[Rfam]
RNA sequence: UGCCCCAUGGCCCAGCUGGUUAAGGCGUCCGACUGUUAAGCUUACGUAAGCAAAAUAUCGGGAGAUCGAGAGUUCGAUCCUCUCUGGGGCAG
Numbered sequence: 001u002g003c004c005c006c007a008u009g010g011c012c013c014a015g016c017u018g019g020u021u022a023a024g025g026c027g028u029c030c031g032a033c034u035g036u037u038a039a040g041c042u043u044a045c046g047u048a049a050g051c052a053a054a055a056u057a058u059c060g061g062g063a064g065a066u067c068g069a070g071a072g073u074u075c076g077a078u079c080c081u082c083u084c085u086g087g088g089g090c091a092g
Stems, first nucleotide, its partner, number of pairs: 001091007010026003028062005068084005
tRNA: a 92-nucleotide RNA from Crepidotus variabilis. Pairs were carried over by alignment from the consensus structure, which is taken from published work. The family's RNA type in Rfam is transfer RNA. Rfam links the family to the GO term triplet codon-amino acid adaptor activity. Lineage of the source: Eukaryota > Fungi > Agaricomycetes > Agaricales > Crepidotus. A search with the family's covariance model found it, with a score of 49 bits.